[Rfam]
Rfam assigns this 90-nucleotide RNA from a Sphingomonadales bacterium to the family "Glycine riboswitch aptamer". Gene Ontology term of the family: glycine biosynthetic process. A search with the family's covariance model found it, with a score of 62 bits.
RNA sequence: UAUGCACGCGCGGGAGAGCGUGGCUUUUAGCCACCGCCGAAGGAGCAACCGCCCCGGAAUCUCUCAGGCACAAGGGACCGCGCAGCGCAC
Numbered sequence: 001u002a003u004g005c006a007c008g009c010g011c012g013g014g015a016g017a018g019c020g021u022g023g024c025u026u027u028u029a030g031c032c033a034c035c036g037c038c039g040a041a042g043g044a045g046c047a048a049c050c051g052c053c054c055c056g057g058a059a060u061c062u063c064u065c066a067g068g069c070a071c072a073a074g075g076g077a078c079c080g081c082g083c084a085g086c087g088c089a090c
Stems, first nucleotide, its partner, number of pairs: 008083006020034004036069003039065002043063003049057002

Annotation:
Taxonomically the source falls in Sphingomonadales (Bacteria, Pseudomonadati, Pseudomonadota, Alphaproteobacteria).